[Rfam]
RNA sequence: CACGUCAGCGCGCUUUGAUGACGUGGACACAAAUCGCGCUUUCAAGGACGCGCUUUGUUGCCACAUCAGCAUAGCGCACUGACGUGG
Number, nucleotide and partner (000 for none) at each position: 001c086002a085003c084004g083005u082006c081007a080008g079009c000010g077011c076012g075013c074014u073015u000016u071017g070018a000019u068020g067021a066022c000023g064024u063025g062026g061027a000028c000029a058030c057031a056032a055033a054034u000035c052036g051037c050038g049039c000040u047041u046042u000043c000044a000045a000046g041047g040048a000049c038050g037051c036052g035053c000054u033055u032056u031057g030058u029059u000060g000061c026062c025063a024064c023065a000066u021067c020068a019069g000070c017071a016072u000073a014074g013075c012076g011077c010078a000079c008080u007081g006082a005083c004084g003085u002086g001087g000
The record is an 87-nucleotide sequence from Gossypium mustelinum, which matches "MIR7486 microRNA precursor family" in Rfam. Lineage of the source: Eukaryota > Streptophyta > eudicotyledons > malvids > Gossypium. The match comes from Rfam's covariance-model search (82 bits). The family's consensus secondary structure was predicted with RNAalifold.